[Rfam]
RNA: Mammalian CPEB3 ribozyme
Organism: Laticauda laticaudata
RNA sequence: UAUUACCCUAUGGGGGCCAUAGAAGGAGCGUUCACGUCGCGGCCCCUGUCAGGUAUCUGUUUACCUGCGAAUCCUUCU
Numbered sequence: 001u002a003u004u005a006c007c008c009u010a011u012g013g014g015g016g017c018c019a020u021a022g023a024a025g026g027a028g029c030g031u032u033c034a035c036g037u038c039g040c041g042g043c044c045c046c047u048g049u050c051a052g053g054u055a056u057c058u059g060u061u062u063a064c065c066u067g068c069g070a071a072u073c074c075u076u077c078u
Stems, first nucleotide, its partner, number of pairs: 013046006021078007028040003050067006